[Rfam]
Shown here is a 59-nucleotide sequence from Denticeps clupeoides, a member of the family "mir-7552 microRNA precursor family". The family's consensus secondary structure was predicted with RNAalifold. Its family is annotated with miRNA-mediated post-transcriptional gene silencing and RISC complex in the Gene Ontology.
RNA sequence: UUACAAUUAAAGGAUAUUUCUUGAGAGACGAACGUGGAAAUAUCUCUUAAUUGUUGGGU
Numbered sequence: 001u002u003a004c005a006a007u008u009a010a011a012g013g014a015u016a017u018u019u020c021u022u023g024a025g026a027g028a029c030g031a032a033c034g035u036g037g038a039a040a041u042a043u044c045u046c047u048u049a050a051u052u053g054u055u056g057g058g059u
Stems, first nucleotide, its partner, number of pairs: 003054008012045010
Dot-bracket structure: ..((((((((.((((((((((..............)))))))))).)))))))).....
The match comes from Rfam's covariance-model search (59 bits). Lineage of the source: Eukaryota > Craniata > Teleostomi > Teleostei > Denticeps.